[Rfam]
RNA: Small nucleolar RNA snR191
Organism: Lasiosphaeria miniovina
RNA sequence: CCCCAGGGGUUUAGUCAGGAUUCUUCCGCAAACUUGUUUGCUACAUGGCAGAAAUCCGUUACAUUCCUGGGAGAGCAAUAUCCACAUCCAACUUCCUCAGUCCCGUCUUGGGAUUGGGGAUUGACAGUCUCCGUUUUGAAGGCCGUCGCAGGAUACCGGACGUGUCUCAUUCGAGUUGAAGGCUACCACUUCCCUCACGGUUAGCUCGUGGUGGUCUUCUUAGUAUUGAUUCACACAUCC
Numbered sequence: 001c002c003c004c005a006g007g008g009g010u011u012u013a014g015u016c017a018g019g020a021u022u023c024u025u026c027c028g029c030a031a032a033c034u035u036g037u038u039u040g041c042u043a044c045a046u047g048g049c050a051g052a053a054a055u056c057c058g059u060u061a062c063a064u065u066c067c068u069g070g071g072a073g074a075g076c077a078a079u080a081u082c083c084a085c086a087u088c089c090a091a092c093u094u095c096c097u098c099a100g101u102c103c104c105g106u107c108u109u110g111g112g113a114u115u116g117g118g119g120a121u122u123g124a125c126a127g128u129c130u131c132c133g134u135u136u137u138g139a140a141g142g143c144c145g146u147c148g149c150a151g152g153a154u155a156c157c158g159g160a161c162g163u164g165u166c167u168c169a170u171u172c173g174a175g176u177u178g179a180a181g182g183c184u185a186c187c188a189c190u191u192c193c194c195u196c197a198c199g200g201u202u203a204g205c206u207c208g209u210g211g212u213g214g215u216c217u218u219c220u221u222a223g224u225a226u227u228g229a230u231u232c233a234c235a236c237a238u239c240c
Stems, first nucleotide, its partner, number of pairs: 003070005018057005024051002026048002029040004081160003089123003093119003098116007127143004132138002162234003167229003178219004184213004192200002